Shown here is a 58-nucleotide RNA from Papaver somniferum, a member of the family "Plastid-psbA-3 3UTR RNA". Taxonomically the source falls in Papaver (Eukaryota, Embryophyta, Mesangiospermae, Papaveraceae). On this family, see Richter et al., Plant Commun 2023: "Retrograde signaling in plants: A critical review focusing on the GUN pathway and beyond". Rfam's curators write: Plastid psbA-3 is a non-coding RNA (ncRNA) present in plastids.
RNA sequence: GAAGAAGCAAUACCGACCCUCUUAUUCUAUCAAGAGGGUCGGUAUUGCUCCUUCAACU
Number, nucleotide and partner (000 for none) at each position: 001g054002a053003a052004g051005a000006a049007g048008c047009a046010a045011u044012a043013c042014c041015g000016a000017c000018c000019c036020u035021c034022u033023u032024a000025u000026u000027c000028u000029a000030u000031c000032a023033a022034g021035a020036g019037g000038g000039u000040c000041g014042g013043u012044a011045u010046u009047g008048c007049u006050c000051c004052u003053u002054c001055a000056a000057c000058u000